[Rfam]
RNA sequence: CUUCUUCGGGCAGCGCAAGGCCCCGGCGACACGUGAUGUCACAAGCCGGGGAGACGAGGUGGAGGUCAGCGACUUUUCUGCGGAUGCCUCCAGGCCCCGGUGAACGGGCCUACCCGGCGCGUGCUUUGCCGCUCUGAGUCAAAGACUCCGGCAGGCAGAACCACGCGCAAGCCCGGCG
Numbered sequence: 001c002u003u004c005u006u007c008g009g010g011c012a013g014c015g016c017a018a019g020g021c022c023c024c025g026g027c028g029a030c031a032c033g034u035g036a037u038g039u040c041a042c043a044a045g046c047c048g049g050g051g052a053g054a055c056g057a058g059g060u061g062g063a064g065g066u067c068a069g070c071g072a073c074u075u076u077u078c079u080g081c082g083g084a085u086g087c088c089u090c091c092a093g094g095c096c097c098c099g100g101u102g103a104a105c106g107g108g109c110c111u112a113c114c115c116g117g118c119g120c121g122u123g124c125u126u127u128g129c130c131g132c133u134c135u136g137a138g139u140c141a142a143a144g145a146c147u148c149c150g151g152c153a154g155g156c157a158g159a160a161c162c163a164c165g166c167g168c169a170a171g172c173c174c175g176g177c178g
Stems, first nucleotide, its partner, number of pairs: 021051007061091005071078002092111006117168007127153005
The record is a 178-nucleotide sequence from Deinococcus radiodurans, which matches "glmS glucosamine-6-phosphate activated ribozyme aptamer" in Rfam. The base pairs follow the family's consensus structure, which is taken from published work. Taxonomically the source falls in Deinococcus radiodurans (Bacteria, Thermotogati, Deinococci, Deinococcales). Gene Ontology terms of the family: catalytic activity and regulation of gene expression.